RNA sequence: UCCAGCGCUCAGUCAGCUGACCAGGCGGCGUGUCUGGCUCGGUGUUACAGUGCUGGUAGAGGAAGCUCUGCUCUGGGCCUCGGCGCUGCAGGCUCUGUUUUGGAGCCUGCAGCUGCUGAGCUGUGGCAGAGCGCGGCCCAACGAGAGUGGCCCGUCCUGGUCUGCCAGCAGGACGGGCCUAGUGCAGGGCUGCACACC
Numbered sequence: 001u002c003c004a005g006c007g008c009u010c011a012g013u014c015a016g017c018u019g020a021c022c023a024g025g026c027g028g029c030g031u032g033u034c035u036g037g038c039u040c041g042g043u044g045u046u047a048c049a050g051u052g053c054u055g056g057u058a059g060a061g062g063a064a065g066c067u068c069u070g071c072u073c074u075g076g077g078c079c080u081c082g083g084c085g086c087u088g089c090a091g092g093c094u095c096u097g098u099u100u101u102g103g104a105g106c107c108u109g110c111a112g113c114u115g116c117u118g119a120g121c122u123g124u125g126g127c128a129g130a131g132c133g134c135g136g137c138c139c140a141a142c143g144a145g146a147g148u149g150g151c152c153c154g155u156c157c158u159g160g161u162c163u164g165c166c167a168g169c170a171g172g173a174c175g176g177g178c179c180u181a182g183u184g185c186a187g188g189g190c191u192g193c194a195c196a197c198c
Stems, first nucleotide, its partner, number of pairs: 002056008012048002016043005022036005065132008079120003085113004090108007133193007149179003153175007
A member of the RNA family "Small nucleolar RNA SNORA74" from Salarias fasciatus, 198 nucleotides long.
From the family's description: U19 belongs to the H/ACA class of snoRNAs. snoRNAs bind a number of proteins (including dyskerin, Gar1p and Nop10p in the case of the H/ACA class) to form snoRNP complexes. This class are thought to guide the sites of modification of uridines to pseudouridines by forming direct base pairing interactions with substrate RNAs. Targets may include ribosomal and spliceosomal RNAs but the exact functions of many snoRNAs, including U19, are not confirmed. Co-precipitation of U19 snoRNA with RNase MRP RNA suggests that U19 may be involved in pre-rRNA processing.
Lineage of the source: Eukaryota > Actinopteri > Neopterygii > Blennioidei > Salarias.
A reference for the family is Ganot et al. (1997), "The family of box ACA small nucleolar RNAs is defined by an evolutionarily conserved secondary structure and ubiquitous sequence elements essential for RNA accumulation", Genes Dev.